This 308-nucleotide sequence from Polaribacter sp. WD7 belongs to the Rfam family "Bacterial RNase P class A". Pairs were carried over by alignment from the consensus structure, which is taken from published work. The match comes from Rfam's covariance-model search (198 bits).

[Rfam]
RNA sequence: UUAGCAGACUUAUCUUAUCGUCUCAAACUAGUUUUGAGAAGGAAAGUCCGGACACCAAAGAGUAAGCAUAGCGGAUAACAUCCGUCCAACGUAAGUUGAGGACAAGUGCAACAGAAAGUACGUACAGUUAGGCUGUAGUGAAACCAGGUAAACUCUAUGCGGUGCAAUGCCAUGUAUAUUAGAGCUUGAGAGCUACUCGCUCGAUUCUAAAGGGUAGGCAGAUUGACCUUAAAAGUAAUUUUAAGGCUAGAUAAAUGAUAAGAACCUUUUUAAGGAUACAGAAUUCGGCUUAUUAGUCUGCUUUUUUA
Numbered sequence: 001u002u003a004g005c006a007g008a009c010u011u012a013u014c015u016u017a018u019c020g021u022c023u024c025a026a027a028c029u030a031g032u033u034u035u036g037a038g039a040a041g042g043a044a045a046g047u048c049c050g051g052a053c054a055c056c057a058a059a060g061a062g063u064a065a066g067c068a069u070a071g072c073g074g075a076u077a078a079c080a081u082c083c084g085u086c087c088a089a090c091g092u093a094a095g096u097u098g099a100g101g102a103c104a105a106g107u108g109c110a111a112c113a114g115a116a117a118g119u120a121c122g123u124a125c126a127g128u129u130a131g132g133c134u135g136u137a138g139u140g141a142a143a144c145c146a147g148g149u150a151a152a153c154u155c156u157a158u159g160c161g162g163u164g165c166a167a168u169g170c171c172a173u174g175u176a177u178a179u180u181a182g183a184g185c186u187u188g189a190g191a192g193c194u195a196c197u198c199g200c201u202c203g204a205u206u207c208u209a210a211a212g213g214g215u216a217g218g219c220a221g222a223u224u225g226a227c228c229u230u231a232a233a234a235g236u237a238a239u240u241u242u243a244a245g246g247c248u249a250g251a252u253a254a255a256u257g258a259u260a261a262g263a264a265c266c267u268u269u270u271u272a273a274g275g276a277u278a279c280a281g282a283a284u285u286c287g288g289c290u291u292a293u294u295a296g297u298c299u300g301c302u303u304u305u306u307u308a
Base pairs, nucleotide, nucleotide: 003302004301005300006299007298008297009296010295012293013263014262015261016260017259018258019257021039022038023037024036025035026034027033044291045290046289048288049287050286051285052284053164054163055162056161062197066160067159068158069157070156071085072084073083074082075081086100087098088097089096090095101155102154106153107152108149109148123137124136125135126134127133128132168220169219170218171217179210180209181208182207183206190202191201192200193199227246228245229244230243231242232241233240234239